[Rfam]
RNA: c-di-AMP riboswitch aptamer (ydaO/yuaA leader)
Organism: Kineococcus aurantiacus
RNA sequence: GCCCACCGCGCGCCGGAACAGAGCCCGUGGGCAGGAGCGGGGGACCCACACGUUCCUCGGACGACCUCCCCGGAGGGAGUCCUCGGGGUGAAGCCGCGCCCGCGCGGCCGGGUCAACCAACCUUCGACCCGAACCCGACAGCUGACCUCGCAGGCGUUGGAGGUCAGCAUG
Number, nucleotide and partner (000 for none) at each position: 001g155002c154003c153004c000005a000006c000007c000008g000009c000010g000011c000012g000013c000014c000015g000016g000017a000018a000019c000020a000021g000022a000023g000024c000025c000026c000027g000028u000029g000030g000031g000032c000033a000034g000035g000036a000037g151038c150039g149040g148041g147042g146043g000044a000045c000046c000047c085048a000049c000050a000051c000052g000053u000054u000055c000056c000057u000058c000059g000060g000061a000062c000063g000064a000065c000066c000067u000068c000069c000070c000071c000072g000073g000074a000075g000076g000077g000078a000079g000080u000081c000082c000083u000084c000085g047086g136087g135088g134089u000090g000091a000092a000093g000094c107095c106096g105097c104098g000099c000100c000101c000102g000103c000104g097105c096106g095107g094108c000109c000110g130111g129112g128113u127114c000115a000116a000117c000118c000119a000120a000121c000122c000123u000124u000125c000126g000127a113128c112129c111130c110131g000132a000133a000134c088135c087136c086137g000138a000139c000140a000141g000142c000143u000144g000145a000146c042147c041148u040149c039150g038151c037152a000153g003154g002155c001156g000157u000158u000159g000160g000161a000162g000163g000164u000165c000166a000167g000168c000169a000170u000171g000